[Rfam]
RNA sequence: AUAACAUGCGCUGUGGUUGAAAGUCGAUGCCAGUCGCAGGCGAAGCGAUCCACGUAAGGAGCUCAAAGCAGCUCUGAUCAUAGUGCGGCCUAGAAGUAAGACCUGCCGCGAAACGGCGAGAGAAGUAGUAGUGGGGGAUACACAUCUAUGAGCGAACCUUCCAGCAGGCGAGUGUGGGGGUAAAGACCAGGUCAGGCAUGUUGC
Numbered sequence: 001a002u003a004a005c006a007u008g009c010g011c012u013g014u015g016g017u018u019g020a021a022a023g024u025c026g027a028u029g030c031c032a033g034u035c036g037c038a039g040g041c042g043a044a045g046c047g048a049u050c051c052a053c054g055u056a057a058g059g060a061g062c063u064c065a066a067a068g069c070a071g072c073u074c075u076g077a078u079c080a081u082a083g084u085g086c087g088g089c090c091u092a093g094a095a096g097u098a099a100g101a102c103c104u105g106c107c108g109c110g111a112a113a114c115g116g117c118g119a120g121a122g123a124a125g126u127a128g129u130a131g132u133g134g135g136g137g138a139u140a141c142a143c144a145u146c147u148a149u150g151a152g153c154g155a156a157c158c159u160u161c162c163a164g165c166a167g168g169c170g171a172g173u174g175u176g177g178g179g180g181u182a183a184a185g186a187c188c189a190g191g192u193c194a195g196g197c198a199u200g201u202u203g204c
Stems, first nucleotide, its partner, number of pairs: 002203008011195003014189005027175003030040001033089006049083001054078001057075003061072003081182001102168005107118003122161004131153002137146003
Dot-bracket structure: .((((((((.((((((((........((([..((((((.]........(....(..(((.(((......))))))..)..[.)))))))............((((((((......)))...((((.....((....(((....))).....))....))))..)))))....)))......]..)))))...))))))))))).
RNA: raiA RNA
Organism: Megasphaera sp. An286